[Rfam]
RNA: Mason-Pfizer monkey virus packaging signal
Organism: Macaca fascicularis
RNA sequence: UGGGCCGGGAUACGUGUGAACAGGGACCUGGAAACGAGGGACUCCGUGAGGAAGAGGACGCCAAAGGACGGUCGACCGCUAACAAAGACAAAAGGAAUUAAACCGAUCACCGCGGGAACCUGCCGCGUCUGAAUCGAAGGUAAGUGACGCAUCCGAAAUGGGACAAGAAUUAAGCCAACAUCAAAUAUAUGUAGGACAAUUAAAAGAGGCUUUAAAGAUCUACGAGGGAGUAAAGGUUAAAGGUAAUGACUUGUUUAAAUUUUUUGAUUUUGUAAAAGAUACUUGCCCUU
Numbered sequence: 001u002g003g004g005c006c007g008g009g010a011u012a013c014g015u016g017u018g019a020a021c022a023g024g025g026a027c028c029u030g031g032a033a034a035c036g037a038g039g040g041a042c043u044c045c046g047u048g049a050g051g052a053a054g055a056g057g058a059c060g061c062c063a064a065a066g067g068a069c070g071g072u073c074g075a076c077c078g079c080u081a082a083c084a085a086a087g088a089c090a091a092a093a094g095g096a097a098u099u100a101a102a103c104c105g106a107u108c109a110c111c112g113c114g115g116g117a118a119c120c121u122g123c124c125g126c127g128u129c130u131g132a133a134u135c136g137a138a139g140g141u142a143a144g145u146g147a148c149g150c151a152u153c154c155g156a157a158a159u160g161g162g163a164c165a166a167g168a169a170u171u172a173a174g175c176c177a178a179c180a181u182c183a184a185a186u187a188u189a190u191g192u193a194g195g196a197c198a199a200u201u202a203a204a205a206g207a208g209g210c211u212u213u214a215a216a217g218a219u220c221u222a223c224g225a226g227g228g229a230g231u232a233a234a235g236g237u238u239a240a241a242g243g244u245a246a247u248g249a250c251u252u253g254u255u256u257a258a259a260u261u262u263u264u265u266g267a268u269u270u271u272g273u274a275a276a277a278g279a280u281a282c283u284u285g286c287c288c289u290u
Stems, first nucleotide, its partner, number of pairs: 001033001045057001047055001097141003103136001107133001108131002111127005149164001152162004171214003174210003223266004228262004234252006275290002278287001280285001